[Rfam]
RNA sequence: CGGCUGUGAUGGUCAUCUGGUAAGGAACUGCAUUUGCACUAUCCUGCCACUCUAUUCUAUCCUAUCACAUGGUGUCCGGUUCGAACGCUGCGGUGGUCCCCAACUCGUGUCGGUAACGCACGAUUGCUUGUGGGGCCUUAAGCAAUGAAAGACAAUCUUGAGGGAGGUUUCACUCUGCAGAGGAUCUUUCACCGUGGCGUGGCGAGUGGGAUUGCAUCAGUAAUGGGUGAGUGGUGAGAAGCGCAUCGGAUGUGGUGACUUAUACUU
Numbered sequence: 001c002g003g004c005u006g007u008g009a010u011g012g013u014c015a016u017c018u019g020g021u022a023a024g025g026a027a028c029u030g031c032a033u034u035u036g037c038a039c040u041a042u043c044c045u046g047c048c049a050c051u052c053u054a055u056u057c058u059a060u061c062c063u064a065u066c067a068c069a070u071g072g073u074g075u076c077c078g079g080u081u082c083g084a085a086c087g088c089u090g091c092g093g094u095g096g097u098c099c100c101c102a103a104c105u106c107g108u109g110u111c112g113g114u115a116a117c118g119c120a121c122g123a124u125u126g127c128u129u130g131u132g133g134g135g136c137c138u139u140a141a142g143c144a145a146u147g148a149a150a151g152a153c154a155a156u157c158u159u160g161a162g163g164g165a166g167g168u169u170u171c172a173c174u175c176u177g178c179a180g181a182g183g184a185u186c187u188u189u190c191a192c193c194g195u196g197g198c199g200u201g202g203c204g205a206g207u208g209g210g211a212u213u214g215c216a217u218c219a220g221u222a223a224u225g226g227g228u229g230a231g232u233g234g235u236g237a238g239a240a241g242c243g244c245a246u247c248g249g250a251u252g253u254g255g256u257g258a259c260u261u262a263u264a265c266u267u
Base pairs, nucleotide, nucleotide: 002014003013004012020263021262022261023260024259027256028255029254030253031252032251033250039241040240043238045236046235047234048233049232050231051230052229063227065225070219071218072217073216074215075214076210077209079207080206081205082204083203085200086199087198088197089196090195091194092193093192095137097135098134099133100132101130102129103128105123106122107121108120109119111118112117138142146191147190148189149188150187151186152185156183157182158181159180164175165174166173
A member of the RNA family "Fungal signal recognition particle RNA" from Pseudogymnoascus sp. VKM F-3557, 267 nucleotides long. A reference for the family is Wild et al. (2002), "Towards the structure of the mammalian signal recognition particle", Curr Opin Struct Biol.